The family of this 381-nucleotide RNA sequence from Tolumonas auensis is "Bacterial RNase P class A". The base pairs follow the family's consensus structure, which is taken from published work.
[Rfam]
RNA sequence: GGGGUUGGCCGGGCAGUCGCCGUCUUGUUGUUGUGCCUUCGGGUAGACAAACAGGAGGGAGGAAAGUCCGGGCUCCACAGGGCAGGGUGCCAGGUAACGCCUGGGAGGCGUAAGCCUACGACCAGUGCAACAGAGAGCAAACCGCCGAUGGCCCGCAAGGGAUCAGGUAAGGGUGAAAGGGUGCGGUAAGAGCGCACCGCGCGACUGGCAACAGUUCGUGGCACGGUAAACUCCACCCGGAGCAAGACCAAAUAGGCUUCCAUGUCGCGGCCCGCGUCGGAAGCGGGUAGGUUGCUUGAGCCUGCGAGCGAUUUCAGGCCUAGAGGAAUGGCUGCCACCGCGCAAGCGGAACAGAACCCGGCUUACAGGCCAACCCCACUA
Numbered sequence: 001g002g003g004g005u006u007g008g009c010c011g012g013g014c015a016g017u018c019g020c021c022g023u024c025u026u027g028u029u030g031u032u033g034u035g036c037c038u039u040c041g042g043g044u045a046g047a048c049a050a051a052c053a054g055g056a057g058g059g060a061g062g063a064a065a066g067u068c069c070g071g072g073c074u075c076c077a078c079a080g081g082g083c084a085g086g087g088u089g090c091c092a093g094g095u096a097a098c099g100c101c102u103g104g105g106a107g108g109c110g111u112a113a114g115c116c117u118a119c120g121a122c123c124a125g126u127g128c129a130a131c132a133g134a135g136a137g138c139a140a141a142c143c144g145c146c147g148a149u150g151g152c153c154c155g156c157a158a159g160g161g162a163u164c165a166g167g168u169a170a171g172g173g174u175g176a177a178a179g180g181g182u183g184c185g186g187u188a189a190g191a192g193c194g195c196a197c198c199g200c201g202c203g204a205c206u207g208g209c210a211a212c213a214g215u216u217c218g219u220g221g222c223a224c225g226g227u228a229a230a231c232u233c234c235a236c237c238c239g240g241a242g243c244a245a246g247a248c249c250a251a252a253u254a255g256g257c258u259u260c261c262a263u264g265u266c267g268c269g270g271c272c273c274g275c276g277u278c279g280g281a282a283g284c285g286g287g288u289a290g291g292u293u294g295c296u297u298g299a300g301c302c303u304g305c306g307a308g309c310g311a312u313u314u315c316a317g318g319c320c321u322a323g324a325g326g327a328a329u330g331g332c333u334g335c336c337a338c339c340g341c342g343c344a345a346g347c348g349g350a351a352c353a354g355a356a357c358c359c360g361g362c363u364u365a366c367a368g369g370c371c372a373a374c375c376c377c378a379c380u381a
Stems, first nucleotide, its partner, number of pairs: 001377010011366001012336007020059002023056006064364003068361005073242004080273004085238005090104005105119001106117004120233002125231002127227002142172002144168003149165003152161003180198006199222001200220005205214003246293004256284006264278001266276003300319005306313002